[Rfam]
RNA sequence: UGCCUUUGUGUUGCCCAUUCAUUCACUUUCAGAAUGAAUGUGGUGUCAAAAAAGGCAAACAAGAAUUCUUGCUAAAACUGUUUAAGGAGCUGGUUGUUUACCUUUCUCCUCCCUGGUUUUGCAAGGACAAAA
Numbered sequence: 001u002g003c004c005u006u007u008g009u010g011u012u013g014c015c016c017a018u019u020c021a022u023u024c025a026c027u028u029u030c031a032g033a034a035u036g037a038a039u040g041u042g043g044u045g046u047c048a049a050a051a052a053a054g055g056c057a058a059a060c061a062a063g064a065a066u067u068c069u070u071g072c073u074a075a076a077a078c079u080g081u082u083u084a085a086g087g088a089g090c091u092g093g094u095u096g097u098u099u100a101c102c103u104u105u106c107u108c109c110u111c112c113c114u115g116g117u118u119u120u121g122c123a124a125g126g127a128c129a130a131a132a
Stems, first nucleotide, its partner, number of pairs: 002056006009048002012045004016040008068125005074120005083115002086112003089108001092103002
RNA: Small nucleolar RNA SNORA13